[Rfam]
RNA: U5 spliceosomal RNA
RNA sequence: CAGCCGUGCGGUAAGCACAAAGCGAACUAUUCUUUCGCCUUUUACUAAAGAAUACCGUUGCUUGCCGCUUACAAGCGGCAUCUCUUCUACU
Numbered sequence: 001c002a003g004c005c006g007u008g009c010g011g012u013a014a015g016c017a018c019a020a021a022g023c024g025a026a027c028u029a030u031u032c033u034u035u036c037g038c039c040u041u042u043u044a045c046u047a048a049a050g051a052a053u054a055c056c057g058u059u060g061c062u063u064g065c066c067g068c069u070u071a072c073a074a075g076c077g078g079c080a081u082c083u084c085u086u087c088u089a090c091u
Stems, first nucleotide, its partner, number of pairs: 003079004009067009019058001028054008